A member of the RNA family "pan motif" from Rummeliibacillus stabekisii, 86 nucleotides long. The family's RNA type in Rfam is cis-regulatory element. It scores 60 bits against the family's covariance model.
RNA sequence: AGGACAGUAUCCAACUCGGAACUGUACCUCCGAAACCAGUAUUACAAUAAUUGAUCUGCCUUGAUCGACUAGACAGGGACGGAAGA
Dot-bracket structure: ((((((((.((.......))))))).)))..........................((((((((.((.....))))))).)))....